[Rfam]
RNA sequence: GCAUUUAAGCCGCCUGGUGGAUGGCUCGGCUCGGGCGCCGAAGAAGGGCGCGGCAAGCGGCGAUAUGCCCGGGUGAGGCGCAUGCAGCCGUAGAACCCGGGAUUCCCGAAUGGGAACUCCUACUGCAGGUUAAUAGCCUGCAGUGCCCGGAUAACCGGGCGGGAACCCCCCGAACGGAAACAUCUUAGUAGGGGGAGGAGGAGAAACCAAACGGGAUUCCCUGAGUAGGGGCGACCGAAAGGGGAAGAGGUCAAACCAAAUCCCUCUAUGAUAAGUAGAGGGAGAUGUGGUGUUGAGAGCUUCUGGCUGGUUAAAAGCCAGAAAGCCGAGCCUCGGUAGCUGAAGUGGGCUGGAAUGCCCCACCGCAGAGGGUGAUAGUCCCGUAAGCAAAACCGAGGUGGCUUUCGCCAGAAGCUAGAGUACUACGGCCCGGUUUGGCCGUAGGAAGCAGGGAGCCACCAGCUUCCAAACCUAAAUACGUCCCGAGACCGAUAGCGGACAAGUACCGCGAGGGAAAGCUGAAAAGGACCCCGAGAGGGGUGUGAAAAGAGCCUGAAACCAGGCGGUUACACCG
Numbered sequence: 001g002c003a004u005u006u007a008a009g010c011c012g013c014c015u016g017g018u019g020g021a022u023g024g025c026u027c028g029g030c031u032c033g034g035g036c037g038c039c040g041a042a043g044a045a046g047g048g049c050g051c052g053g054c055a056a057g058c059g060g061c062g063a064u065a066u067g068c069c070c071g072g073g074u075g076a077g078g079c080g081c082a083u084g085c086a087g088c089c090g091u092a093g094a095a096c097c098c099g100g101g102a103u104u105c106c107c108g109a110a111u112g113g114g115a116a117c118u119c120c121u122a123c124u125g126c127a128g129g130u131u132a133a134u135a136g137c138c139u140g141c142a143g144u145g146c147c148c149g150g151a152u153a154a155c156c157g158g159g160c161g162g163g164a165a166c167c168c169c170c171c172g173a174a175c176g177g178a179a180a181c182a183u184c185u186u187a188g189u190a191g192g193g194g195g196a197g198g199a200g201g202a203g204a205a206a207c208c209a210a211a212c213g214g215g216a217u218u219c220c221c222u223g224a225g226u227a228g229g230g231g232c233g234a235c236c237g238a239a240a241g242g243g244g245a246a247g248a249g250g251u252c253a254a255a256c257c258a259a260a261u262c263c264c265u266c267u268a269u270g271a272u273a274a275g276u277a278g279a280g281g282g283a284g285a286u287g288u289g290g291u292g293u294u295g296a297g298a299g300c301u302u303c304u305g306g307c308u309g310g311u312u313a314a315a316a317g318c319c320a321g322a323a324a325g326c327c328g329a330g331c332c333u334c335g336g337u338a339g340c341u342g343a344a345g346u347g348g349g350c351u352g353g354a355a356u357g358c359c360c361c362a363c364c365g366c367a368g369a370g371g372g373u374g375a376u377a378g379u380c381c382c383g384u385a386a387g388c389a390a391a392a393c394c395g396a397g398g399u400g401g402c403u404u405u406c407g408c409c410a411g412a413a414g415c416u417a418g419a420g421u422a423c424u425a426c427g428g429c430c431c432g433g434u435u436u437g438g439c440c441g442u443a444g445g446a447a448g449c450a451g452g453g454a455g456c457c458a459c460c461a462g463c464u465u466c467c468a469a470a471c472c473u474a475a476a477u478a479c480g481u482c483c484c485g486a487g488a489c490c491g492a493u494a495g496c497g498g499a500c501a502a503g504u505a506c507c508g509c510g511a512g513g514g515a516a517a518g519c520u521g522a523a524a525a526g527g528a529c530c531c532c533g534a535g536a537g538g539g540g541u542g543u544g545a546a547a548a549g550a551g552c553c554u555g556a557a558a559c560c561a562g563g564c565g566g567u568u569a570c571a572c573c574g
Base pairs, nucleotide, nucleotide: 008568009567010566011565012564013563014562015561016560017559023553024519025518028490029489030487031486032485033484034483035482036480037479046107047106048105049062050061051060068101069100070099071098072097073096077089078088079087112121113120114119146159147158148157149156150155166197167195168194169193170192171191177184178183207214208213218245219244220243221242222241228236229235248473249472250471251470256290257289258288266278267277268276269275302412303411304410305409323404324403325402326401339388340387341386345361347360348359349358350357364368370382371381372380423444424443425442426441427440428439429438451467452466453465454464455463506513507512
RNA: Archaeal large subunit ribosomal RNA, nucleotides 10 to 583